[Rfam]
RNA sequence: GUUGCCCAUGAUGAGUUGCGGAAUUAUUGCCUACAUUGUUUGACAAACAUCCCUGCGUGCACUCAGCAGCUGAGGCAUAC
Numbered sequence: 001g002u003u004g005c006c007c008a009u010g011a012u013g014a015g016u017u018g019c020g021g022a023a024u025u026a027u028u029g030c031c032u033a034c035a036u037u038g039u040u041u042g043a044c045a046a047a048c049a050u051c052c053c054u055g056c057g058u059g060c061a062c063u064c065a066g067c068a069g070c071u072g073a074g075g076c077a078u079a080c
Stems, first nucleotide, its partner, number of pairs: 001080002003077004
Small nucleolar RNA SNORD34: an 80-nucleotide sequence from Zea mays. Rfam classes the family as a C/D-box small nucleolar RNA. For this family Rfam cites "The high diversity of snoRNAs in plants: identification and comparative study of 120 snoRNA genes from Oryza sativa" (Chen et al., Nucleic Acids Res, 2003). Its family is annotated with RNA processing and nucleolus in the Gene Ontology. Its Rfam clan is "SNORD34 clan". The family has 14 seed sequences and 1,319 matches in Rfam 15.1. Pairs were carried over by alignment from the consensus structure, which was predicted with PFOLD. Rfam's curators write: snoRNA U34 is found in intron 5 of the ribosomal protein L13a gene in humans.